[Rfam]
Shown here is a 116-nucleotide RNA sequence from Simkania sp., a member of the family "TPP riboswitch aptamer (THI element)". It scores 60 bits against the family's covariance model. Lineage of the source: Bacteria > Pseudomonadati > Chlamydiota > Simkaniaceae > Simkania. The family's consensus secondary structure is taken from published work.
RNA sequence: CUGUACCGCCAGAGGUGCCUGGAUAGAGCCGGCUGAAAAAACGUCACGAUACUACGUUUAACUCUCAUUACCUGAUCUGGGUCAUACCAGCGUAGGGAGUGUGUCAAACUACGUUU
Numbered sequence: 001c002u003g004u005a006c007c008g009c010c011a012g013a014g015g016u017g018c019c020u021g022g023a024u025a026g027a028g029c030c031g032g033c034u035g036a037a038a039a040a041a042c043g044u045c046a047c048g049a050u051a052c053u054a055c056g057u058u059u060a061a062c063u064c065u066c067a068u069u070a071c072c073u074g075a076u077c078u079g080g081g082u083c084a085u086a087c088c089a090g091c092g093u094a095g096g097g098a099g100u101g102u103g104u105c106a107a108a109c110u111a112c113g114u115u116u
Stems, first nucleotide, its partner, number of pairs: 007103003011065004017033003021029001040058005071096004077090004